RNA sequence: AAAGGCAAGGAUCGCCCCCCGUCAGCGCGUUGCGCCCACGGGGGCGCUUCUC
Numbered sequence: 001a002a003a004g005g006c007a008a009g010g011a012u013c014g015c016c017c018c019c020c021g022u023c024a025g026c027g028c029g030u031u032g033c034g035c036c037c038a039c040g041g042g043g044g045c046g047c048u049u050c051u052c
Base pairs, nucleotide, nucleotide: 016044017043018042019041020040021039022038025035026034027033028032
RNA: ffh sRNA
Organism: Lutimaribacter saemankumensis